[Rfam]
RNA sequence: CGCUUACAGUGUACAAGUCCAGUCAUCCACCUGUGCUUGCACAAAGGUGGAUGACUGGACUUAGGACACGCCCCAAGAAUGAGCAUAAAAGUGAAGCGAAAGCUUCACGAUAUGCGAAUGCUUGGGAAGGAUUGCGGGAGUGCGAAGCACGUAGCAAUCCGGUAAGCA
Dot-bracket structure: .((((((...((.(..(((((((((((((((((((....))))..)))))))))))))))...).)).....(((((.((..((((....(((((((....)))))))...))))..)).)))))...(((((((....((((...))))...))))))).)))))).